[Rfam]
RNA: Histone 3' UTR stem-loop
Nucleotides: 046
Stems, first nucleotide, its partner, number of pairs: 006021006
Number, partner (000 for none) and nucleotide at each position: 001000a002000c003000a004000a005000a006021g007020g008019c009018u010017c011016u012000u013000u014000u015000c016011a017010g018009a019008g020007c021006c022000a023000c024000c025000a026000c027000a028000u029000c030000c031000u032000c033000c034000u035000a036000u037000a038000c039000a040000a041000a042000g043000a044000g045000a046000u